[Rfam]
RNA sequence: UAGCGGGGACGGGGCUCGGAACCCCUCCCUGAGCCCAGGGUAACACUAGAGGUGGAGGGGAA
Number, nucleotide and partner (000 for none) at each position: 001u000002a000003g000004c000005g000006g000007g000008g041009a000010c039011g000012g036013g035014g034015c033016u031017c000018g029019g028020a000021a000022c060023c059024c058025c057026u056027c055028c019029c018030u000031g016032a000033g015034c014035c013036c012037a000038g000039g010040g000041u008042a000043a000044c000045a000046c000047u000048a000049g000050a000051g000052g000053u000054g000055g027056a026057g025058g024059g023060g022061a000062a000
This 62-nucleotide sequence from Sciurus vulgaris belongs to the Rfam family "Gag/pol translational readthrough site".
The family's consensus secondary structure is taken from published work.
The organism belongs to Sciurus, within Eukaryota.
Its family is annotated with viral translational readthrough in the Gene Ontology.
For this family Rfam cites "RNA pseudoknots: translational frameshifting and readthrough on viral RNAs" (ten Dam et al., Virus Genes, 1990).